[Rfam]
RNA sequence: UGGGGUUGCUGAAUUAGAGAUUGGCACCCUUACAUUCUUUUAAAUUUGGAGUUCUAAAAUGUCUCUAAGCGCUGAAGCUAAAGCUAAAAUCGUUUCUGAGUUUGGUCGUGGUACU
Numbered sequence: 001u002g003g004g005g006u007u008g009c010u011g012a013a014u015u016a017g018a019g020a021u022u023g024g025c026a027c028c029c030u031u032a033c034a035u036u037c038u039u040u041u042a043a044a045u046u047u048g049g050a051g052u053u054c055u056a057a058a059a060u061g062u063c064u065c066u067a068a069g070c071g072c073u074g075a076a077g078c079u080a081a082a083g084c085u086a087a088a089a090u091c092g093u094u095u096c097u098g099a100g101u102u103u104g105g106u107c108g109u110g111g112u113a114c115u
Base pairs, nucleotide, nucleotide: 007026008025009024010023011022012021045069046068047067048066049065050064051063
RNA: Ribosomal S15 leader